Rfam assigns this 167-nucleotide sequence from Candidatus Izimoplasma sp. HR2 to the family "Lysine riboswitch aptamer". Rfam's curators write: Riboswitches are metabolite binding domains within certain messenger RNAs that serve as precision sensors for their corresponding targets. A search with the family's covariance model found it, with a score of 78 bits. On this family, see Mandal et al., Cell 2003: "Riboswitches Control Fundamental Biochemical Pathways in Bacillus subtilis and Other Bacteria".

[Rfam]
RNA sequence: AAAUAGUUUAGAGGCUGCGAUGCAGAAUAGUACUAUGUUUAGCCGGUAGGCAACGACGCAUAGGAAAGGUAACCAUCGCCGAAUGUUAUUAAUAGACAUAUUAAUAAUGUGGGAUUAUAGAUAAUAUCUAUAAUACUCCUACCCUGGGUAGUGGCGCUAAAUAAUAC
Numbered sequence: 001a002a003a004u005a006g007u008u009u010a011g012a013g014g015c016u017g018c019g020a021u022g023c024a025g026a027a028u029a030g031u032a033c034u035a036u037g038u039u040u041a042g043c044c045g046g047u048a049g050g051c052a053a054c055g056a057c058g059c060a061u062a063g064g065a066a067a068g069g070u071a072a073c074c075a076u077c078g079c080c081g082a083a084u085g086u087u088a089u090u091a092a093u094a095g096a097c098a099u100a101u102u103a104a105u106a107a108u109g110u111g112g113g114a115u116u117a118u119a120g121a122u123a124a125u126a127u128c129u130a131u132a133a134u135a136c137u138c139c140u141a142c143c144c145u146g147g148g149u150a151g152u153g154g155c156g157c158u159a160a161a162u163a164a165u166a167c
Base pairs, nucleotide, nucleotide: 006162007161008160009159010158011157017079018078019077020076021075022074025070033063034062035061036060037059038058083110084109085108086107087106088105089104090103091102092101093100094099111137112136114134115133116132117131118130119129120128121127139151140150141149142148143147
Lineage of the source: Bacteria > Mycoplasmatota > Candidatus Izemoplasmatales > Candidatus Izemoplasmataceae > Candidatus Izemoplasma. Pairs were carried over by alignment from the consensus structure, which is taken from published work.